RNA sequence: GCUGGGCUUGGUAACGCGAGCCUGUAACCCAAGUCAAGUGGGAGCAUUAAGAUGGUUGAAUGAUGAUUGGAUUUACCUUGAAAGCUGGGCUUGGGGUGCUAUUUACCGGCCUGCCCUUUCCAAGUGGUGAGUUGGGUUGUGGAGUCUUUGCGAAGGCGUAGGCUUGUCGGCUCUUAGACCGGGAGGGUAUUGCGUCAGGCUGGUUUCACAGAGCAGCGAACACCUCCUCCUCUCUGCAGUGGAAGGAUAACAGGUCGGAGCUUCUUCAGUCCACUAGAGCCUGAUGGGUUGCCCAAUUGAACCACCAUCUUU
Numbered sequence: 001g002c003u004g005g006g007c008u009u010g011g012u013a014a015c016g017c018g019a020g021c022c023u024g025u026a027a028c029c030c031a032a033g034u035c036a037a038g039u040g041g042g043a044g045c046a047u048u049a050a051g052a053u054g055g056u057u058g059a060a061u062g063a064u065g066a067u068u069g070g071a072u073u074u075a076c077c078u079u080g081a082a083a084g085c086u087g088g089g090c091u092u093g094g095g096g097u098g099c100u101a102u103u104u105a106c107c108g109g110c111c112u113g114c115c116c117u118u119u120c121c122a123a124g125u126g127g128u129g130a131g132u133u134g135g136g137u138u139g140u141g142g143a144g145u146c147u148u149u150g151c152g153a154a155g156g157c158g159u160a161g162g163c164u165u166g167u168c169g170g171c172u173c174u175u176a177g178a179c180c181g182g183g184a185g186g187g188u189a190u191u192g193c194g195u196c197a198g199g200c201u202g203g204u205u206u207c208a209c210a211g212a213g214c215a216g217c218g219a220a221c222a223c224c225u226c227c228u229c230c231u232c233u234c235u236g237c238a239g240u241g242g243a244a245g246g247a248u249a250a251c252a253g254g255u256c257g258g259a260g261c262u263u264c265u266u267c268a269g270u271c272c273a274c275u276a277g278a279g280c281c282u283g284a285u286g287g288g289u290u291g292c293c294c295a296a297u298u299g300a301a302c303c304a305c306c307a308u309c310u311u312u
Base pairs, nucleotide, nucleotide: 001045002044003043004023005022006021007020008019009018010017028042029041030040031039049311050310051309052308053307054306055305056304058302064299065298066297067296068295069293070292074288076287077286079284081282084280085279086278087272088271089270090269091268093266094265096263098261100260106258107257108256109255110254111253112252113251115246116245118244119243120242121241122240124237125236126235127234129232130231131230134173135172136171137170138169139168142165143164144163145162146161147160149158150157151156181228182227183226184225185224186223191220193218194217195216200211201210202209
The record is a 312-nucleotide RNA from Ipomoea nil, which matches "Plant signal recognition particle RNA" in Rfam. For this family Rfam cites "Towards the structure of the mammalian signal recognition particle" (Wild et al., Curr Opin Struct Biol, 2002). Taxonomically the source falls in Ipomoea (Eukaryota, Embryophyta, Tracheophyta, Convolvulaceae). It is annotated as a non-coding RNA gene. Its family is annotated with signal recognition particle, endoplasmic reticulum targeting and SRP-dependent cotranslational protein targeting to membrane, signal sequence recognition in the Gene Ontology. Pairs were carried over by alignment from the consensus structure, which is taken from published work. Its Rfam clan is "SRP clan". The match comes from Rfam's covariance-model search (213 bits).